[Rfam]
RNA: Bacillaceae-1 RNA
Organism: Bacillus sp. J14TS2
RNA sequence: AUGAUAUGAUCUUCUACUAAAACCGCCCACGUCCUGUGGGCAACGCAGAAGUCAGCACAUCCUGUGCA
Numbered sequence: 001a002u003g004a005u006a007u008g009a010u011c012u013u014c015u016a017c018u019a020a021a022a023c024c025g026c027c028c029a030c031g032u033c034c035u036g037u038g039g040g041c042a043a044c045g046c047a048g049a050a051g052u053c054a055g056c057a058c059a060u061c062c063u064g065u066g067c068a
Stems, first nucleotide, its partner, number of pairs: 011051005017045001026040005055067004